[Rfam]
RNA sequence: UGCUAUGAUGUCACAAUUUGCAUCUUACUCUGUUCUCAGCGACAGUUGCCUGCUGUCAGUAAGCUGGUUCAGAAGGGUGAUGAAAAUUCUGUUUUUCUUUUUA
Numbered sequence: 001u002g003c004u005a006u007g008a009u010g011u012c013a014c015a016a017u018u019u020g021c022a023u024c025u026u027a028c029u030c031u032g033u034u035c036u037c038a039g040c041g042a043c044a045g046u047u048g049c050c051u052g053c054u055g056u057c058a059g060u061a062a063g064c065u066g067g068u069u070c071a072g073a074a075g076g077g078u079g080a081u082g083a084a085a086a087u088u089c090u091g092u093u094u095u096u097c098u099u100u101u102u103a
Stems, first nucleotide, its partner, number of pairs: 001103002021082004030072003039064002041057005
The family of this 103-nucleotide RNA sequence from Phyllostomus discolor is "Small nucleolar RNA SNORD16". The family is grouped with related families in Rfam's "SNORD16 clan". Rfam links the family to the GO terms nucleolus and RNA processing. Rfam 15.1 lists 1,321 matches to the family in 655 species. For this family Rfam cites "A novel small nucleolar RNA (U16) is encoded inside a ribosomal protein intron and originates by processing of the pre-mRNA" (Fragapane et al., EMBO J, 1993). The match comes from Rfam's covariance-model search (85 bits).